[Rfam]
RNA: Lysine riboswitch aptamer
Organism: Weissella soli
RNA sequence: AUGUUUGAUAGAGGUCGCGAAAGACAAGAGUAAGUUCAUGGAACCAUGCCAAUGGUGUUGAAAUGAAGUGAAAGGGGAUUUUGCCGAAAUUGAUUUGUGUGGCAGCAAAUUAAUUGGGCCGUUAAUGAAUAGUUAACGGACUGUCGCUGUAACCCAGCGGAGUGCUAUCGGAUGG
Numbered sequence: 001a002u003g004u005u006u007g008a009u010a011g012a013g014g015u016c017g018c019g020a021a022a023g024a025c026a027a028g029a030g031u032a033a034g035u036u037c038a039u040g041g042a043a044c045c046a047u048g049c050c051a052a053u054g055g056u057g058u059u060g061a062a063a064u065g066a067a068g069u070g071a072a073a074g075g076g077g078a079u080u081u082u083g084c085c086g087a088a089a090u091u092g093a094u095u096u097g098u099g100u101g102g103c104a105g106c107a108a109a110u111u112a113a114u115u116g117g118g119c120c121g122u123u124a125a126u127g128a129a130u131a132g133u134u135a136a137c138g139g140a141c142u143g144u145c146g147c148u149g150u151a152a153c154c155c156a157g158c159g160g161a162g163u164g165c166u167a168u169c170g171g172a173u174g175g
Stems, first nucleotide, its partner, number of pairs: 006170006017084006025076001033069001035067005088115011116142002119139008144160006